[Rfam]
RNA sequence: UUUCUAUUGUUGGCAGCCCUUCAUAUAAUCCCGUUAAUAUGGUCCGGGAGUCUCUACUAGGCCGCCGUAAAUGGCCUGACUAUGAAGGCAGGUUUUUCCGGA
Dot-bracket structure: .................((((((((...(((((...........)))))........(((((((.......)))))))..))))))))..............
Purine riboswitch aptamer: a 102-nucleotide RNA from Lederbergia citrea. Gene Ontology term of the family: purine nucleobase biosynthetic process. The source organism's lineage runs through Bacteria, Bacillati, Bacilli, Caryophanales and Lederbergia. Riboswitches are metabolite binding domains within certain messenger RNAs that serve as precision sensors for their corresponding targets. Allosteric rearrangement of mRNA structure is mediated by ligand binding, and this results in modulation of gene expression.